[Rfam]
Shown here is a 133-nucleotide RNA sequence, a member of the family "Plastid-psbA-1 3UTR RNA". Plastid psbA-1 is a non-coding RNA (ncRNA) present in plastids. It was identified in inverted repeat sequences in the 3 prime untranslate region (3UTR) of photosystem II quinone-binding protein (psbA). By type it is a cis-regulatory element. The sequence is in the family's curated seed alignment. Clan: Plastid-psbA 3UTR RNA clan.

RNA sequence: UGGAAGUUUCAUCUACAAAUGGCUAAAUUUGUUUUUUAGUUUAGUAGAGACGAUUUUCUGUUUUUUUUUUUUUUUAGUAACGGAGCAAUAAAAACUUUCUUGUUCUAUCAAGAAAGGAGUAUUGCUCCGUUAU
Numbered sequence: 001u002g003g004a005a006g007u008u009u010c011a012u013c014u015a016c017a018a019a020u021g022g023c024u025a026a027a028u029u030u031g032u033u034u035u036u037u038a039g040u041u042u043a044g045u046a047g048a049g050a051c052g053a054u055u056u057u058c059u060g061u062u063u064u065u066u067u068u069u070u071u072u073u074u075u076a077g078u079a080a081c082g083g084a085g086c087a088a089u090a091a092a093a094a095c096u097u098u099c100u101u102g103u104u105c106u107a108u109c110a111a112g113a114a115a116g117g118a119g120u121a122u123u124g125c126u127c128c129g130u131u132a133u
Base pairs, nucleotide, nucleotide: 009022010021011020012019079131080130081129082128083127084126085125086124087123088122089121090120097114098113099112100111101110